[Rfam]
RNA: TPP riboswitch aptamer (THI element)
Organism: Thermovirga lienii
RNA sequence: UGAAGGCCAUGGGGGCGCCCCUAAGAGGGGCUGAGAAGGUACCCCUUGAACCUGAUCCAGGUAAUACUGGCGGAGGGAAUGGCAAGAAAAGGGAA
Dot-bracket structure: .....(((((((((.((((((.....))))).......)..)))).....(((...((((......))))...)))..)))))............
Numbered sequence: 001u002g003a004a005g006g007c008c009a010u011g012g013g014g015g016c017g018c019c020c021c022u023a024a025g026a027g028g029g030g031c032u033g034a035g036a037a038g039g040u041a042c043c044c045c046u047u048g049a050a051c052c053u054g055a056u057c058c059a060g061g062u063a064a065u066a067c068u069g070g071c072g073g074a075g076g077g078a079a080u081g082g083c084a085a086g087a088a089a090a091g092g093g094a095a
Stems, first nucleotide, its partner, number of pairs: 006083005011045004016039001017031005051076003057070004